[Rfam]
RNA sequence: ACACUCAUGUUUUUCCUCAGAUCGUAUAAAUCUUUCGCCUUUUACUAAAGAUUUCCGUGGGGAAGAACACUAUGAGUAUAAACUAAUUUUUUGAUGCCCUGCCGAUAGGCGGGGCU
Numbered sequence: 001a002c003a004c005u006c007a008u009g010u011u012u013u014u015c016c017u018c019a020g021a022u023c024g025u026a027u028a029a030a031u032c033u034u035u036c037g038c039c040u041u042u043u044a045c046u047a048a049a050g051a052u053u054u055c056c057g058u059g060g061g062g063a064a065g066a067a068c069a070c071u072a073u074g075a076g077u078a079u080a081a082a083c084u085a086a087u088u089u090u091u092u093g094a095u096g097c098c099c100u101g102c103c104g105a106u107a108g109g110c111g112g113g114g115c116u
Stems, first nucleotide, its partner, number of pairs: 003077004009068011028054008094116001096115006
Rfam assigns this 116-nucleotide RNA to the family "U5 spliceosomal RNA".
The sequence is in the family's curated seed alignment.
About the family: U5 RNA is a component of both types of known spliceosome. The precise function of this molecule is unknown, though it is known that the 5' loop is required for splice site selection and p220 binding, and that both the 3' stem-loop and the Sm site are important for Sm protein binding and cap methylation.
The literature on the family includes a 1996 paper in J Biol Chem by Hinz et al., "Domain analysis of human U5 RNA. Cap trimethylation, protein binding, and spliceosome assembly".
Rfam links the family to the GO terms U5 snRNP and spliceosomal tri-snRNP complex assembly.